[Rfam]
RNA sequence: UCAGACGGCCGGGCGGCCGCUUCGGUCCAGUGGCGAAAGCCGGGCCGGAGAGGAAAGUCCGGGCUCCACGGAAGGAGGGCGCCGGGGAAAGCCCGGCGGGCCGGUUUGCCGGUCCAGGGAUAGCGCCGCAGAAAACAAACCGCCGCGCCUGGCGCGGCAAGGGUGAAACGGUGCGGUAAGAGCGCACCGCCCCGACCGCAAGGAAGGGGGCACGGCAAGCCCCGCCCGGAGCAAGACCGAAUAGGGAUGGAAGUCCGGUUCGUCCGGACACGCGCCUUCCGAGCGCCAUCCGGGUAGGUCGCUUCAGUCAGUGAGCAAUCACUGGCGCAGAUGAAUGGUCGCCACCGGUUUUUCCCAUGUGGAAAAACCGGCACAGAACCCGGCUUACAGGCCGUCUGACCCC
Numbered sequence: 001u002c003a004g005a006c007g008g009c010c011g012g013g014c015g016g017c018c019g020c021u022u023c024g025g026u027c028c029a030g031u032g033g034c035g036a037a038a039g040c041c042g043g044g045c046c047g048g049a050g051a052g053g054a055a056a057g058u059c060c061g062g063g064c065u066c067c068a069c070g071g072a073a074g075g076a077g078g079g080c081g082c083c084g085g086g087g088a089a090a091g092c093c094c095g096g097c098g099g100g101c102c103g104g105u106u107u108g109c110c111g112g113u114c115c116a117g118g119g120a121u122a123g124c125g126c127c128g129c130a131g132a133a134a135a136c137a138a139a140c141c142g143c144c145g146c147g148c149c150u151g152g153c154g155c156g157g158c159a160a161g162g163g164u165g166a167a168a169c170g171g172u173g174c175g176g177u178a179a180g181a182g183c184g185c186a187c188c189g190c191c192c193c194g195a196c197c198g199c200a201a202g203g204a205a206g207g208g209g210g211c212a213c214g215g216c217a218a219g220c221c222c223c224g225c226c227c228g229g230a231g232c233a234a235g236a237c238c239g240a241a242u243a244g245g246g247a248u249g250g251a252a253g254u255c256c257g258g259u260u261c262g263u264c265c266g267g268a269c270a271c272g273c274g275c276c277u278u279c280c281g282a283g284c285g286c287c288a289u290c291c292g293g294g295u296a297g298g299u300c301g302c303u304u305c306a307g308u309c310a311g312u313g314a315g316c317a318a319u320c321a322c323u324g325g326c327g328c329a330g331a332u333g334a335a336u337g338g339u340c341g342c343c344a345c346c347g348g349u350u351u352u353u354c355c356c357a358u359g360u361g362g363a364a365a366a367a368c369c370g371g372c373a374c375a376g377a378a379c380c381c382g383g384c385u386u387a388c389a390g391g392c393c394g395u396c397u398g399a400c401c402c403c
Base pairs, nucleotide, nucleotide: 001399002398003397004396005395006394007393008392009391010390011388012343013342014341015340016339017338018337020050021049022048023047024046025045026044027043028042055386056385057384059383060382061381062380063379064231065230066229067228074278075277077227078226079225080224081223082096083095084094085093086092097117098115099114100113101112102111103110104109118222119221123220124219125216126215127214140162141161142158143157144156145155146154147153148152170188171187172186173185174184175183189211190209191208192207193206196203197202235300236299237298238297245291246290247289248288249287250286271285272284273283275281307326308325309324310323311322312321313320314319

The family of this 403-nucleotide sequence from Marinicauda pacifica is "Bacterial RNase P class A". It scores 275 bits against the family's covariance model. Rfam links the family to the GO terms dimeric ribonuclease P complex, tRNA processing and ribonuclease P activity. It is annotated as a ribozyme. The organism belongs to Marinicauda, within Bacteria.